[Rfam]
The record is a 243-nucleotide sequence from Parascedosporium putredinis, which matches "Small nucleolar RNA snR191" in Rfam. A reference for the family is Badis et al. (2003), "A snoRNA that guides the two most conserved pseudouridine modifications within rRNA confers a growth advantage in yeast", RNA. NCBI's taxonomy places the organism under Eukaryota, Dikarya, Ascomycota, sordariomyceta, Parascedosporium.

Nucleotides: 243
Base pairs, nucleotide, nucleotide: 003075004074005073006072007071019062020061021060022059023058024055025054026053027052028051031042032041033040034039086162087161088160090157091156092155095128096127097126099124100123101122102121103120104119105118107116108115109114130146131145132144134142135141136140165236166235169232170231171230181222182221183220184219187215188214189213191205192204193203
Number, partner (000 for none) and nucleotide at each position: 001000u002000g003075c004074c005073c006072a007071g008000u009000g010000u011000u012000u013000u014000a015000g016000u017000c018000a019062g020061g021060a022059u023058a024055c025054u026053u027052u028051c029000c030000c031042a032041c033040a034039c035000c036000u037000u038000u039034g040033u041032g042031u043000u044000u045000g046000g047000c048000a049000a050000u051028g052027g053026a054025a055024g056000a057000u058023u059022a060021u061020c062019u063000g064000u065000u066000a067000c068000a069000c070000g071007c072006u073005g074004g075003g076000c077000a078000g079000a080000u081000c082000a083000a084000a085000u086162g087161u088160c089000a090157a091156u092155c093000u094000u095128g096127c097126c098000u099124a100123c101122c102121u103120u104119c105118c106000c107116a108115c109114c110000a111000u112000c113000u114109g115108g116107u117000c118105g119104g120103a121102a122101g123100g124099u125000c126097g127096g128095u129000g130146a131145a132144c133000g134142c135141c136140g137000u138000u139000c140136u141135g142134g143000a144132g145131u146130u147000c148000g149000c150000c151000a152000u153000a154000a155092g156091a157090u158000a159000c160088g161087a162086c163000g164000u165236u166235g167000u168000u169232u170231c171230a172000a173000a174000a175000u176000g177000a178000g179000u180000u181222g182221a183220g184219g185000c186000u187215g188214c189213c190000c191205c192204c193203g194000u195000c196000a197000a198000u199000a200000u201000a202000c203193u204192g205191g206000g207000u208000u209000u210000a211000g212000u213189g214188g215187c216000a217000g218000u219184c220183u221182u222181u223000u224000u225000a226000g227000u228000a229000c230171u231170g232169a233000u234000u235166c236165a237000u238000a239000c240000a241000u242000a243000c